[Rfam]
RNA sequence: UCUAGAACUUGAGAUAAAGGCUGAACACUAAAUAGUGUUUAGGCUGCAGGACAAAUUUUGACUAACAAUUUGAACUUGAAAAUGGUCAUUUUGAAUCUUGGACUCUUCAUAAAAGUUUUAGGCCUAUGCCUUGACUUUCUAUC
Numbered sequence: 001u002c003u004a005g006a007a008c009u010u011g012a013g014a015u016a017a018a019g020g021c022u023g024a025a026c027a028c029u030a031a032a033u034a035g036u037g038u039u040u041a042g043g044c045u046g047c048a049g050g051a052c053a054a055a056u057u058u059u060g061a062c063u064a065a066c067a068a069u070u071u072g073a074a075c076u077u078g079a080a081a082a083u084g085g086u087c088a089u090u091u092u093g094a095a096u097c098u099u100g101g102a103c104u105c106u107u108c109a110u111a112a113a114a115g116u117u118u119u120a121g122g123c124c125u126a127u128g129c130c131u132u133g134a135c136u137u138u139c140u141a142u143c
Stems, first nucleotide, its partner, number of pairs: 003141005009133001011132003015128002018125003021121005027116003035110003041106003045102001048099004054092002058088001060086001062085002069078001
The family of this 143-nucleotide sequence from Populus deltoides is "MIR2912 microRNA precursor family".
The family's consensus secondary structure was predicted with RNAalifold.
Gene Ontology terms of the family: miRNA-mediated post-transcriptional gene silencing and RISC complex.